[Rfam]
The family of this 107-nucleotide RNA is "RT-5 RNA".
RNA sequence: GGAUGCCCGCGACGGGCAAAGCACCGGACAAUCGCCUUUGGCGGCCCUGCGGGCGGCCGUCCGGUGUGCCGCCCCGUAUGAUAAACUUAUCAUUUUAAAGUUUUUUC
Number, nucleotide and partner (000 for none) at each position: 001g000002g000003a000004u000005g054006c053007c052008c051009g050010c049011g048012a000013c000014g074015g073016g000017c071018a000019a000020a000021g067022c066023a065024c064025c063026g062027g061028a060029c000030a000031a000032u000033c000034g000035c000036c000037u000038u000039u000040g000041g000042c000043g058044g057045c056046c055047c000048u011049g010050c009051g008052g007053g006054c005055g046056g045057c044058c043059g000060u028061c027062c026063g025064g024065u023066g022067u021068g000069c000070c000071g017072c000073c015074c014075c000076g000077u000078a093079u092080g091081a090082u089083a088084a000085a000086c000087u000088u083089a082090u081091c080092a079093u078094u000095u000096u000097a000098a000099a000100g000101u000102u000103u000104u000105u000106u000107c000

The base pairs follow the family's consensus structure, which is taken from published work.